Rfam assigns this 77-nucleotide RNA sequence from Eptatretus burgeri to the family "Mammalian CPEB3 ribozyme". The base pairs follow the family's consensus structure, which is taken from published work. The organism belongs to Eptatretus, within Eukaryota. It scores 45 bits against the family's covariance model.
RNA sequence: AGUCGUGUGUGGGGGACACGGAAGGAGCGUUCACGCCGUGGUCCCUGUCAGGCUUCUUUCUCCCUGUGAAUCCUCCU
Numbered sequence: 001a002g003u004c005g006u007g008u009g010u011g012g013g014g015g016a017c018a019c020g021g022a023a024g025g026a027g028c029g030u031u032c033a034c035g036c037c038g039u040g041g042u043c044c045c046u047g048u049c050a051g052g053c054u055u056c057u058u059u060c061u062c063c064c065u066g067u068g069a070a071u072c073c074u075c076c077u
Base pairs, nucleotide, nucleotide: 012045013044014043015042017040020077021076023074024073025072026071027039028038029037049066050065051064052063
Dot-bracket structure: ...........((((.(..[[.[[[[(((.......)))).))))...((((..........))))....]]]].]]